[Rfam]
RNA sequence: GGAAGGGGAUCGCUUCCCGGUGGAGCGCCCGGACUUCAAAUCCGGUGAGGCGCGCAACGCGUGCCUGGUGGGUUCGACUCCCAUACCCUUCC
Numbered sequence: 001g002g003a004a005g006g007g008g009a010u011c012g013c014u015u016c017c018c019g020g021u022g023g024a025g026c027g028c029c030c031g032g033a034c035u036u037c038a039a040a041u042c043c044g045g046u047g048a049g050g051c052g053c054g055c056a057a058c059g060c061g062u063g064c065c066u067g068g069u070g071g072g073u074u075c076g077a078c079u080c081c082c083a084u085a086c087c088c089u090u091c092c
Base pairs, nucleotide, nucleotide: 001092002091003090004089005088006087007086009084011027012026013025014024015023017022029045030044031043032042033041048066049065050064051063052062069083070082071081072080

Overview: Rfam assigns this 92-nucleotide RNA from Marinobacter daqiaonensis to the family "Selenocysteine transfer RNA". For this family Rfam cites "Eukaryotic selenocysteine tRNA has the 9/4 secondary structure" (Mizutani and Goto, FEBS Lett, 2000). A search with the family's covariance model found it, with a score of 78 bits.